[Rfam]
A member of the RNA family "mir-148/mir-152 microRNA precursor family" from Alligator mississippiensis, 72 nucleotides long. The organism belongs to Alligator, within Eukaryota. Pairs were carried over by alignment from the consensus structure, which was predicted with RNAalifold.
RNA sequence: UUGAGGCGGAGUUCUGUCAUACACUCGGACUGUGCUACCUGGGGUCAGUGCAUCACAGAACUUUGUCUCGAG
Numbered sequence: 001u002u003g004a005g006g007c008g009g010a011g012u013u014c015u016g017u018c019a020u021a022c023a024c025u026c027g028g029a030c031u032g033u034g035c036u037a038c039c040u041g042g043g044g045u046c047a048g049u050g051c052a053u054c055a056c057a058g059a060a061c062u063u064u065g066u067c068u069c070g071a072g
Stems, first nucleotide, its partner, number of pairs: 004068013022050004028046004